Source information:
A member of the RNA family "SAM riboswitch aptamer (S box leader)" from Desulfuromonas sp. DDH964, 126 nucleotides long. Lineage of the source: Bacteria > Pseudomonadati > Thermodesulfobacteriota > Desulfuromonadales > Desulfuromonas. Clan: SAM clan. Rfam links the family to the GO term regulation of gene expression. The base pairs follow the family's consensus structure, which is taken from published work.

RNA sequence: UUCUUAUCGAGAGUGGCGGAGGGACAGGCCCGUUGAUGCCACAGCAACCGGUCCGCAGGGUGCGGAUGCCAGGUGCUAAUUCCUGCCCACCGGAGCCGAAAGGGGCGACGGAGGGAAAGAUGAGGA
Numbered sequence: 001u002u003c004u005u006a007u008c009g010a011g012a013g014u015g016g017c018g019g020a021g022g023g024a025c026a027g028g029c030c031c032g033u034u035g036a037u038g039c040c041a042c043a044g045c046a047a048c049c050g051g052u053c054c055g056c057a058g059g060g061u062g063c064g065g066a067u068g069c070c071a072g073g074u075g076c077u078a079a080u081u082c083c084u085g086c087c088c089a090c091c092g093g094a095g096c097c098g099a100a101a102g103g104g105g106c107g108a109c110g111g112a113g114g115g116a117a118a119g120a121u122g123a124g125g126a
Stems, first nucleotide, its partner, number of pairs: 001126008013042005021031003025085004043077004048073002050070003081118001086115003090111002